[Rfam]
RNA sequence: UUCGUCGAGGGGCGCUGCGACCUUGGCCGCCGGUGCGUUGCAUCGCGGUUUUCGGGCCAGGCUCGACGAAACGUUCCGUGUAACGGCGCCCGGUCAAG
Numbered sequence: 001u002u003c004g005u006c007g008a009g010g011g012g013c014g015c016u017g018c019g020a021c022c023u024u025g026g027c028c029g030c031c032g033g034u035g036c037g038u039u040g041c042a043u044c045g046c047g048g049u050u051u052u053c054g055g056g057c058c059a060g061g062c063u064c065g066a067c068g069a070a071a072c073g074u075u076c077c078g079u080g081u082a083a084c085g086g087c088g089c090c091c092g093g094u095c096a097a098g
Base pairs, nucleotide, nucleotide: 002069003068004067005066006065007064008063021056022055023054025052026051